[Rfam]
MIR398 microRNA precursor family: a 172-nucleotide RNA from Spinacia oleracea.
RNA sequence: CGAAAUCCUACAGGAGCGACAUGAGACCACAUGAACAAGGCAUUCUGCAUUUCUGCACCUUCCCAAAACAAAUCACCAUUUUUAUGGGUGAUUUGAUUUGGGUUCGGGUUUUCUGGGUAGGUUGCUAUCAAGUGCUGCUCAUGUGUUCUCAGGUCGCCCCUGCCGGGCUUCA
Numbered sequence: 001c002g003a004a005a006u007c008c009u010a011c012a013g014g015a016g017c018g019a020c021a022u023g024a025g026a027c028c029a030c031a032u033g034a035a036c037a038a039g040g041c042a043u044u045c046u047g048c049a050u051u052u053c054u055g056c057a058c059c060u061u062c063c064c065a066a067a068a069c070a071a072a073u074c075a076c077c078a079u080u081u082u083u084a085u086g087g088g089u090g091a092u093u094u095g096a097u098u099u100g101g102g103u104u105c106g107g108g109u110u111u112u113c114u115g116g117g118u119a120g121g122u123u124g125c126u127a128u129c130a131a132g133u134g135c136u137g138c139u140c141a142u143g144u145g146u147u148c149u150c151a152g153g154u155c156g157c158c159c160c161u162g163c164c165g166g167g168c169u170u171c172a
Base pairs, nucleotide, nucleotide: 007166008165011162012161013160014159016157017156018155019154023150024149025148026147028145029144030143031142032141033140034139
Taxonomically the source falls in Spinacia (Eukaryota, eudicotyledons, Pentapetalae, Caryophyllales). Gene Ontology terms of the family: RISC complex and miRNA-mediated post-transcriptional gene silencing. A reference for the family is Jones-Rhoades and Bartel (2004), "Computational identification of plant microRNAs and their targets, including a stress-induced miRNA", Mol Cell.